[Rfam]
RNA sequence: UCGAAGCUCCAUCCACAAAUGGAUAAGGACUCGGUCUUGGUGUAUAGGAGUUUUUGAAAAUAAGGGAGCAAACUACUUUCUUGUUCUAAACAAUAUGGGAUAUUGCUCCUUU
Numbered sequence: 001u002c003g004a005a006g007c008u009c010c011a012u013c014c015a016c017a018a019a020u021g022g023a024u025a026a027g028g029a030c031u032c033g034g035u036c037u038u039g040g041u042g043u044a045u046a047g048g049a050g051u052u053u054u055u056g057a058a059a060a061u062a063a064g065g066g067a068g069c070a071a072a073c074u075a076c077u078u079u080c081u082u083g084u085u086c087u088a089a090a091c092a093a094u095a096u097g098g099g100a101u102a103u104u105g106c107u108c109c110u111u112u
Stems, first nucleotide, its partner, number of pairs: 008023005062112010074098001079095001081093002
Source information:
A member of the RNA family "Plastid-psbA-1 3UTR RNA" from Ipomoea nil, 112 nucleotides long. A reference for the family is Richter et al. (2023), "Retrograde signaling in plants: A critical review focusing on the GUN pathway and beyond", Plant Commun. The base pairs follow the family's consensus structure, which was predicted with LocARNA.